Rfam assigns this 411-nucleotide RNA from Mycoplasma capricolum to the family "transfer-messenger RNA". By type it is a non-coding RNA gene. Rfam links the family to the GO term RNA catabolic process. The base pairs follow the family's consensus structure, which is taken from published work.
[Rfam]
RNA sequence: GGGGAUGUCAUGGAUUUGACAGGAUAUCUUUAGUACAUAUAAGCAGUAGUGUUGUAGACUAUAAAUACUACUAGGUUUAAAAAAACGCAAAUAAAAACGAAGAAACUUUUGAAAUGCCAGCAUUUAUGAUGAAUAAUGCAUCAGCUGGAGCAAACUUUAUGUUUGCUUAAUAACUACUAGUUUAGUUAUAGUAUUUCACGAAUUAUAGAUAUUUUAAGCUUUAUUUAUAACCGUAUUACCCAAGCUUAAUAGAAUAUAUGAUUGCAAUAAAUAUAUUUGAAAUCUAAUUGCAAAUGAUAUUUAACCUUUAGUUAAUUUUAGUUAAAUAUUUUAAUUAGAAAAUUAACUAAACUGUAGAAAGUAUGUAUUAAUAUAUCUUGGACGCGAGUUCGAUUCUCGCCAUCUCCACCA
Numbered sequence: 001g002g003g004g005a006u007g008u009c010a011u012g013g014a015u016u017u018g019a020c021a022g023g024a025u026a027u028c029u030u031u032a033g034u035a036c037a038u039a040u041a042a043g044c045a046g047u048a049g050u051g052u053u054g055u056a057g058a059c060u061a062u063a064a065a066u067a068c069u070a071c072u073a074g075g076u077u078u079a080a081a082a083a084a085a086c087g088c089a090a091a092u093a094a095a096a097a098c099g100a101a102g103a104a105a106c107u108u109u110u111g112a113a114a115u116g117c118c119a120g121c122a123u124u125u126a127u128g129a130u131g132a133a134u135a136a137u138g139c140a141u142c143a144g145c146u147g148g149a150g151c152a153a154a155c156u157u158u159a160u161g162u163u164u165g166c167u168u169a170a171u172a173a174c175u176a177c178u179a180g181u182u183u184a185g186u187u188a189u190a191g192u193a194u195u196u197c198a199c200g201a202a203u204u205a206u207a208g209a210u211a212u213u214u215u216a217a218g219c220u221u222u223a224u225u226u227a228u229a230a231c232c233g234u235a236u237u238a239c240c241c242a243a244g245c246u247u248a249a250u251a252g253a254a255u256a257u258a259u260g261a262u263u264g265c266a267a268u269a270a271a272u273a274u275a276u277u278u279g280a281a282a283u284c285u286a287a288u289u290g291c292a293a294a295u296g297a298u299a300u301u302u303a304a305c306c307u308u309u310a311g312u313u314a315a316u317u318u319u320a321g322u323u324a325a326a327u328a329u330u331u332u333a334a335u336u337a338g339a340a341a342a343u344u345a346a347c348u349a350a351a352c353u354g355u356a357g358a359a360a361g362u363a364u365g366u367a368u369u370a371a372u373a374u375a376u377c378u379u380g381g382a383c384g385c386g387a388g389u390u391c392g393a394u395u396c397u398c399g400c401c402a403u404c405u406c407c408a409c410c411a
Base pairs, nucleotide, nucleotide: 001407002406003405004404005403006402007401020380021379022378023377024376025375026374027373029371031370032369033368034367035366036365037364038363039362040361043355044354045353046352047351048069049068050067051066052065055079056078057077058076059075060074155180156179161174162173163172185231186230187229188228189227190226205224206223207222208221214249215248216247217246218245219244220243250280252278253277254276255275256274257273258272262293263292264291265290266289267288294332296330297329298328299327300326301325302324304322305321311347312346313345314344317341318340319339384400385399386398387397388396